The record is a 152-nucleotide RNA from Leifsonia sp. Leaf336, which matches "FMN riboswitch aptamer (RFN element)" in Rfam. About the family: The RFN element is a highly conserved domain that is found frequently in the 5'-untranslated regions of prokaryotic mRNAs that encode for flavin mononucleotide (FMN) biosynthesis and transport proteins. This element is a metabolite-dependent riboswitch that directly binds FMN in the absence of proteins.

RNA sequence: AACGUGCUCCGGGGUCGGUGAGAGUCCGAACCGGCGGUGACAGUCCGCGAGCGGGAGGCCCAGCCUCCUGUUGAGCCGGUGGAAUUCCGGCACCGACGGUAAUGCGUGCAGGCGAGAGCCUGGGCGCUCAGUCCGGAUGGGAGGCGCACGUC
Numbered sequence: 001a002a003c004g005u006g007c008u009c010c011g012g013g014g015u016c017g018g019u020g021a022g023a024g025u026c027c028g029a030a031c032c033g034g035c036g037g038u039g040a041c042a043g044u045c046c047g048c049g050a051g052c053g054g055g056a057g058g059c060c061c062a063g064c065c066u067c068c069u070g071u072u073g074a075g076c077c078g079g080u081g082g083a084a085u086u087c088c089g090g091c092a093c094c095g096a097c098g099g100u101a102a103u104g105c106g107u108g109c110a111g112g113c114g115a116g117a118g119c120c121u122g123g124g125c126g127c128u129c130a131g132u133c134c135g136g137a138u139g140g141g142a143g144g145c146g147c148a149c150g151u152c
Stems, first nucleotide, its partner, number of pairs: 003150005009144002016028003032095002034048004043093002051071003075091005097135003